[Rfam]
The record is a 120-nucleotide RNA sequence from Clostridium sp. CAG:138, which matches "FMN riboswitch aptamer (RFN element)" in Rfam. Its family is annotated with FMN binding in the Gene Ontology. Rfam describes the family as follows. The RFN element is a highly conserved domain that is found frequently in the 5'-untranslated regions of prokaryotic mRNAs that encode for flavin mononucleotide (FMN) biosynthesis and transport proteins. This element is a metabolite-dependent riboswitch that directly binds FMN in the absence of proteins. In Bacillus subtilis, the riboswitch most likely controls gene expression by causing premature transcription termination within the 5' untranslated region of the ribDEAHT operon and precluding access to the ribosome-binding site of ypaA mRNA.The FMN riboswitch structure, reported in present an FMN-bound six-stem junction, adopts a butterfly-like scaffold, stapled together by opposingly directed but nearly identically folded peripheral domains. Pairs were carried over by alignment from the consensus structure, which is taken from published work. It scores 89 bits against the family's covariance model.
RNA sequence: AUCAGUCUUCGAGGCGGGGCGAAGUUCCCCACCGGCGGUCACAGUCCGCAAGCGGCUUUUGCCGCACGAUCCGGUGAAAUUCCGGUACCGACGGUCACAGUCCGGAUGAGAGAAGCUGUG
Numbered sequence: 001a002u003c004a005g006u007c008u009u010c011g012a013g014g015c016g017g018g019g020c021g022a023a024g025u026u027c028c029c030c031a032c033c034g035g036c037g038g039u040c041a042c043a044g045u046c047c048g049c050a051a052g053c054g055g056c057u058u059u060u061g062c063c064g065c066a067c068g069a070u071c072c073g074g075u076g077a078a079a080u081u082c083c084g085g086u087a088c089c090g091a092c093g094g095u096c097a098c099a100g101u102c103c104g105g106a107u108g109a110g111a112g113a114a115g116c117u118g119u120g
Stems, first nucleotide, its partner, number of pairs: 003118003007115004017029003031101002033090002035049004044088002052065003071085004092104003
Dot-bracket structure: ..(((.((((......(((.......))).[[((((((.....[[))))..(((........))).....((((.......)))).]])).(((.....]]))).......)))))))..